[Rfam]
The family of this 59-nucleotide sequence from Humibacillus xanthopallidus is "msiK RNA". The family's consensus secondary structure is taken from published work. The organism belongs to Humibacillus, within Bacteria. The family has 120 seed sequences and 1,374 matches in Rfam 15.1.
RNA sequence: GUGGGUAGCCCUUUACAACGGAUCGUCCGGCACGUUCCUGCCGGUGAAGGAAGGCAAUG
Numbered sequence: 001g002u003g004g005g006u007a008g009c010c011c012u013u014u015a016c017a018a019c020g021g022a023u024c025g026u027c028c029g030g031c032a033c034g035u036u037c038c039u040g041c042c043g044g045u046g047a048a049g050g051a052a053g054g055c056a057a058u059g
Base pairs, nucleotide, nucleotide: 010050011049012048013047014046015045027044028043029042030041031040032039